[Rfam]
RNA sequence: UGCCACAAACCCGUAGAUCCGAACUUGUGCUCAAAUGCCACACAAGCUCGUGUCUACAGGUAUGUGUCUC
Numbered sequence: 001u002g003c004c005a006c007a008a009a010c011c012c013g014u015a016g017a018u019c020c021g022a023a024c025u026u027g028u029g030c031u032c033a034a035a036u037g038c039c040a041c042a043c044a045a046g047c048u049c050g051u052g053u054c055u056a057c058a059g060g061u062a063u064g065u066g067u068c069u070c
Base pairs, nucleotide, nucleotide: 002068004066005065006064007063010060011059015055016054017053018052020050021049022048024046025045026044027043028042029041
mir-10 microRNA precursor family: a 70-nucleotide RNA from Acipenser ruthenus. The match comes from Rfam's covariance-model search (67 bits). Rfam 15.1 lists 3,853 matches to the family in 853 species. Pairs were carried over by alignment from the consensus structure, which was predicted with PFOLD. Its family is annotated with miRNA-mediated post-transcriptional gene silencing and RISC complex in the Gene Ontology.